A member of the RNA family "Small nucleolar RNA Z13/snr52" from Dactylonectria macrodidyma, 101 nucleotides long. The family has 42 seed sequences and 1,203 matches in Rfam 15.1.
RNA sequence: CCUCCUCCAUAUGAUGAAAUAUUCCGGAUGUAAAUCAUGUCACUGCGGAAAAGCGCAAAAACGAUGUCGAAAUUUCCGUUGCCUUCCUUCUGAUCUUGGAG
Numbered sequence: 001c002c003u004c005c006u007c008c009a010u011a012u013g014a015u016g017a018a019a020u021a022u023u024c025c026g027g028a029u030g031u032a033a034a035u036c037a038u039g040u041c042a043c044u045g046c047g048g049a050a051a052a053g054c055g056c057a058a059a060a061a062c063g064a065u066g067u068c069g070a071a072a073u074u075u076c077c078g079u080u081g082c083c084u085u086c087c088u089u090c091u092g093a094u095c096u097u098g099g100a101g
Stems, first nucleotide, its partner, number of pairs: 003100003025078004